[Rfam]
RNA sequence: CUCAUUUUUGGCCUUCUCUUCCUGGUUCUUCCUGGAAUCAGGUAAAGCUGGGUUGAGGGGGCAAACACACACGCAA
Numbered sequence: 001c002u003c004a005u006u007u008u009u010g011g012c013c014u015u016c017u018c019u020u021c022c023u024g025g026u027u028c029u030u031c032c033u034g035g036a037a038u039c040a041g042g043u044a045a046a047g048c049u050g051g052g053u054u055g056a057g058g059g060g061g062c063a064a065a066c067a068c069a070c071a072c073g074c075a076a
Stems, first nucleotide, its partner, number of pairs: 014059005021052005029044001031042004
RNA: mir-320 microRNA precursor family